[Rfam]
RNA sequence: CAUCAACAACACGUUGAUCGCCGGUUUUCUGACCCGUCCCCCGUUGGAUGCCGGUGAUAAACGAUAGCCCCAUCCCCUCUCCGGGCUGUCGUUUGUGAGUGUAGUGAUAUGGCCGUUGUGGUAUCCCCCCUCACCACGACGGCCAAUU
Numbered sequence: 001c002a003u004c005a006a007c008a009a010c011a012c013g014u015u016g017a018u019c020g021c022c023g024g025u026u027u028u029c030u031g032a033c034c035c036g037u038c039c040c041c042c043g044u045u046g047g048a049u050g051c052c053g054g055u056g057a058u059a060a061a062c063g064a065u066a067g068c069c070c071c072a073u074c075c076c077c078u079c080u081c082c083g084g085g086c087u088g089u090c091g092u093u094u095g096u097g098a099g100u101g102u103a104g105u106g107a108u109a110u111g112g113c114c115g116u117u118g119u120g121g122u123a124u125c126c127c128c129c130c131u132c133a134c135c136a137c138g139a140c141g142g143c144c145a146a147u148u
Stems, first nucleotide, its partner, number of pairs: 020055006031045003059094011111144001113142010
This 148-nucleotide RNA from Brucella gallinifaecis belongs to the Rfam family "Alphaproteobacterial sRNA ar7". For this family Rfam cites "A survey of sRNA families in alpha-proteobacteria" (del Val et al., RNA Biol, 2012). It is annotated as a small RNA. It scores 86 bits against the family's covariance model.